[Rfam]
RNA sequence: CCUGGAGUGACAUACUUCAUUUAGAUUCAUUUUUAUAAAAUAUACUAGAAGUACACAAAAAUGAAUCUAAAUGAAGUAUGUCACUCCAGG
Numbered sequence: 001c002c003u004g005g006a007g008u009g010a011c012a013u014a015c016u017u018c019a020u021u022u023a024g025a026u027u028c029a030u031u032u033u034u035a036u037a038a039a040a041u042a043u044a045c046u047a048g049a050a051g052u053a054c055a056c057a058a059a060a061a062u063g064a065a066u067c068u069a070a071a072u073g074a075a076g077u078a079u080g081u082c083a084c085u086c087c088a089g090g
Stems, first nucleotide, its partner, number of pairs: 007084019027064008